[Rfam]
RNA sequence: AUACCAGAAACUAGUUUGGGGGGAAUUAUUACCUUUACCAACUCAGGUAGUUUGGCAGAAUGAGUAAGACAAAACUCCAGGGUGGGAUAACUCGCUUAGUGUGUUCCUUACUAUCUUGUAGCCUACAUU
Numbered sequence: 001a002u003a004c005c006a007g008a009a010a011c012u013a014g015u016u017u018g019g020g021g022g023g024a025a026u027u028a029u030u031a032c033c034u035u036u037a038c039c040a041a042c043u044c045a046g047g048u049a050g051u052u053u054g055g056c057a058g059a060a061u062g063a064g065u066a067a068g069a070c071a072a073a074a075c076u077c078c079a080g081g082g083u084g085g086g087a088u089a090a091c092u093c094g095c096u097u098a099g100u101g102u103g104u105u106c107c108u109u110a111c112u113a114u115c116u117u118g119u120a121g122c123c124u125a126c127a128u129u
Base pairs, nucleotide, nucleotide: 004055005054006053007052008051012050014048015047016046017045018043019042022039023038025036067124068123070121072119074117081109082108084107085106086105087104088103089102092099
Shown here is a 129-nucleotide RNA sequence from Mesocricetus auratus, a member of the family "Small nucleolar RNA SNORA4". Gene Ontology terms of the family: RNA processing and nucleolus. Lineage of the source: Eukaryota > Teleostomi > Dipnotetrapodomorpha > Glires > Mesocricetus. From the family's description: ACA4 is a member of the H/ACA class of snoRNA that guide the sites of modification of uridines to pseudouridines.